[Rfam]
The record is a 147-nucleotide sequence from Oryctolagus cuniculus, which matches "Small nucleolar RNA SNORD10" in Rfam. A search with the family's covariance model found it, with a score of 106 bits. Rfam links the family to the GO terms nucleolus and RNA processing. NCBI's taxonomy places the organism under Eukaryota, Opisthokonta, Chordata, Leporidae, Oryctolagus. Pairs were carried over by alignment from the consensus structure, which was predicted with WAR.
RNA sequence: GCUCUGUGAUGAACCCCAUGCGUGUCAGCUGAGCCCUGGCUUCCCUGUCCUCUCAGCCCAAGCCCAGGGAGUGUUCUACUUCCUGGGGCUGUUGAUUGGCCUCCAGGGCAGCCCUGGGCAAAGGAUCAAUCUCUGUAUUCUGAGAGC
Numbered sequence: 001g002c003u004c005u006g007u008g009a010u011g012a013a014c015c016c017c018a019u020g021c022g023u024g025u026c027a028g029c030u031g032a033g034c035c036c037u038g039g040c041u042u043c044c045c046u047g048u049c050c051u052c053u054c055a056g057c058c059c060a061a062g063c064c065c066a067g068g069g070a071g072u073g074u075u076c077u078a079c080u081u082c083c084u085g086g087g088g089c090u091g092u093u094g095a096u097u098g099g100c101c102u103c104c105a106g107g108g109c110a111g112c113c114c115u116g117g118g119c120a121a122a123g124g125a126u127c128a129a130u131c132u133c134u135g136u137a138u139u140c141u142g143a144g145a146g147c
Base pairs, nucleotide, nucleotide: 001147002146003145004144043108044107045106046105047104049099050098